[Rfam]
RNA sequence: AAAACGGCCCUUUUCAGGGCCACAUUACGAUUCAUACAGUUUCUCU
Dot-bracket structure: .....((((((....)))))).........................
Rfam assigns this 46-nucleotide RNA sequence from Pieris brassicae to the family "Histone 3' UTR stem-loop". From the family's description: The mRNAs of metazoan histone genes lack a poly-A tail. 3' end processing occurs at a site between a highly conserved stem-loop (modelled by this family) and a purine rich region around 20 nts downstream (the histone downstream element, or HDE). The stem-loop is bound by a 31 kDa stem-loop binding protein (SLBP - also termed the histone hairpin binding protein, or HBP). By type it is a cis-regulatory element. The family has 50 seed sequences and 44,596 matches in Rfam 15.1.